[Rfam]
RNA: TPP riboswitch aptamer (THI element)
Organism: Luteolibacter pohnpeiensis
RNA sequence: CACAAACGACAGGGGUGCUCCACGACCGAGGGGCCGAGAUUUUCCGCGCGUGGAAAGAACCCUCCGAACCUGACGCGGGUGAUGCCGCCGUAGGAAGUCGAAGCCAUUCACCG
Numbered sequence: 001c002a003c004a005a006a007c008g009a010c011a012g013g014g015g016u017g018c019u020c021c022a023c024g025a026c027c028g029a030g031g032g033g034c035c036g037a038g039a040u041u042u043u044c045c046g047c048g049c050g051u052g053g054a055a056a057g058a059a060c061c062c063u064c065c066g067a068a069c070c071u072g073a074c075g076c077g078g079g080u081g082a083u084g085c086c087g088c089c090g091u092a093g094g095a096a097g098u099c100g101a102a103g104c105c106a107u108u109c110a111c112c113g
Stems, first nucleotide, its partner, number of pairs: 007100004011063004016057001017034005041056005069094004075088004